[Rfam]
Shown here is an 87-nucleotide RNA from Sesamum indicum, a member of the family "Small nucleolar RNA snoR27".
Its family is annotated with RNA processing and nucleolus in the Gene Ontology.
The family's RNA type in Rfam is C/D-box small nucleolar RNA.
The match comes from Rfam's covariance-model search (59 bits).
On this family, see Brown et al., RNA 2001: "Multiple snoRNA gene clusters from Arabidopsis".

RNA sequence: UAUGGAUCGGUGAUGUCAUCUAAUACUGCGUUAUCUAUCUGCAAUUACAAUGUAUUUGAAGAUAACAUCUUAAUCCUGAGAUCCGAC
Numbered sequence: 001u002a003u004g005g006a007u008c009g010g011u012g013a014u015g016u017c018a019u020c021u022a023a024u025a026c027u028g029c030g031u032u033a034u035c036u037a038u039c040u041g042c043a044a045u046u047a048c049a050a051u052g053u054a055u056u057u058g059a060a061g062a063u064a065a066c067a068u069c070u071u072a073a074u075c076c077u078g079a080g081a082u083c084c085g086a087c
Base pairs, nucleotide, nucleotide: 003085004084005083006082007081
NCBI's taxonomy places the organism under Eukaryota, Spermatophyta, eudicotyledons, Pedaliaceae, Sesamum.